Record summary: This 235-nucleotide sequence belongs to the Rfam family "RT-2 RNA".
RNA sequence: CUGGGUCAAUCGUAGUAGCCCAAAGGGUGAACUAUGACCCUUACGAAAGGAGAAAUACUUCCCGUGAUGAAAGUCCGAAACUACCCUUUGAUAUUUUGACACGAACGCCGCCGGAGUACCCGUGCGUGCAUGGCGAGAGAUGCAUCUUACCUCGUUUCAUGUGUCACGAAUUAAGCAGAUUAGACGAUGCCCUACAAGACAUCUGUACGGAGGGUGAACAAUUUUUAUGAGUAGA
Numbered sequence: 001c002u003g004g005g006u007c008a009a010u011c012g013u014a015g016u017a018g019c020c021c022a023a024a025g026g027g028u029g030a031a032c033u034a035u036g037a038c039c040c041u042u043a044c045g046a047a048a049g050g051a052g053a054a055a056u057a058c059u060u061c062c063c064g065u066g067a068u069g070a071a072a073g074u075c076c077g078a079a080a081c082u083a084c085c086c087u088u089u090g091a092u093a094u095u096u097u098g099a100c101a102c103g104a105a106c107g108c109c110g111c112c113g114g115a116g117u118a119c120c121c122g123u124g125c126g127u128g129c130a131u132g133g134c135g136a137g138a139g140a141u142g143c144a145u146c147u148u149a150c151c152u153c154g155u156u157u158c159a160u161g162u163g164u165c166a167c168g169a170a171u172u173a174a175g176c177a178g179a180u181u182a183g184a185c186g187a188u189g190c191c192c193u194a195c196a197a198g199a200c201a202u203c204u205g206u207a208c209g210g211a212g213g214g215u216g217a218a219c220a221a222u223u224u225u226u227a228u229g230a231g232u233a234g235a
Stems, first nucleotide, its partner, number of pairs: 004039004019027002066075003083215008092207001093171004098165005107129002132156006175206005181201001182193002